Shown here is a 104-nucleotide RNA sequence from Arachidicoccus rhizosphaerae, a member of the family "SAM-I/IV (S-adenosyl methionine) riboswitch aptamer". Clan: SAM clan. A reference for the family is Trausch et al. (2014), "Structural basis for diversity in the SAM clan of riboswitches", PNAS. The organism belongs to Arachidicoccus, within Bacteria. The family's consensus secondary structure is taken from published work.
[Rfam]
RNA sequence: UAUCCGCAUCAAGAAGUUAAGCGAUUACAAUUAACGCCAACCGAGCGAGAAAAGCUACGGUGGUCAAACGAUGAGGGUCAAACAAACCAAAAAAGUUGAAUGUA
Numbered sequence: 001u002a003u004c005c006g007c008a009u010c011a012a013g014a015a016g017u018u019a020a021g022c023g024a025u026u027a028c029a030a031u032u033a034a035c036g037c038c039a040a041c042c043g044a045g046c047g048a049g050a051a052a053a054g055c056u057a058c059g060g061u062g063g064u065c066a067a068a069c070g071a072u073g074a075g076g077g078u079c080a081a082a083c084a085a086a087c088c089a090a091a092a093a094a095g096u097u098g099a100a101u102g103u104a
Stems, first nucleotide, its partner, number of pairs: 007073004017034004036064003041060003044056003051097002076088003